Shown here is a 54-nucleotide sequence, a member of the family "RAGATH-31 RNA".
[Rfam]
RNA sequence: GGAGGACGUGAGGAUAAAGGGCUGGUACACGUCGCCGCCCUCCUCACGGCCUCC
Numbered sequence: 001g002g003a004g005g006a007c008g009u010g011a012g013g014a015u016a017a018a019g020g021g022c023u024g025g026u027a028c029a030c031g032u033c034g035c036c037g038c039c040c041u042c043c044u045c046a047c048g049g050c051c052u053c054c
Base pairs, nucleotide, nucleotide: 001054002053003052004051007048008047009046010045011044012043013042014041019040020039021038022037024036025035026034